This 89-nucleotide RNA from Elaphomyces granulatus belongs to the Rfam family "A. fumigatus snoRNA Afu_263". Clan: SNORD77 clan. Pairs were carried over by alignment from the consensus structure. The match comes from Rfam's covariance-model search (76 bits).

[Rfam]
RNA sequence: CUCAGUGAUGAUGAUCAUCAAUCUUAAGCAUAGUUCACCUGAAGGUCUUAGGAUCAGUGAACGAAAAAAAUUCUUCAAUAUUUCUGACA
Numbered sequence: 001c002u003c004a005g006u007g008a009u010g011a012u013g014a015u016c017a018u019c020a021a022u023c024u025u026a027a028g029c030a031u032a033g034u035u036c037a038c039c040u041g042a043a044g045g046u047c048u049u050a051g052g053a054u055c056a057g058u059g060a061a062c063g064a065a066a067a068a069a070a071u072u073c074u075u076c077a078a079u080a081u082u083u084c085u086g087a088c089a
Stems, first nucleotide, its partner, number of pairs: 006020005033062005044055004